[Rfam]
RNA sequence: UGUUUCCUUCGGGGGUGGGUGAAAUUCCCUACCGGCGGUGAUCCCGGGCUGCGGCAAGCGGCUGCGGGCAAGUCCGUGACCCGGCUGCAUCGCUCUGUCUGAAGCGUGCAGGCGGUGGAUUCGGUGAGAUUCCGGAACCGACAGUAUAGUCUGGAUGGGAGAAGGAGAAA
Dot-bracket structure: ..((((((((......(((.......))).[[((((((.................................[[))))...((...............................))....(((((.......)))))]])).(((....]]))).......))))))))..
Annotation: Shown here is a 170-nucleotide sequence from Paenibacillus sp. J2TS4, a member of the family "FMN riboswitch aptamer (RFN element)". The family's consensus secondary structure is taken from published work. The match comes from Rfam's covariance-model search (103 bits). The RFN element is a highly conserved domain that is found frequently in the 5'-untranslated regions of prokaryotic mRNAs that encode for flavin mononucleotide (FMN) biosynthesis and transport proteins.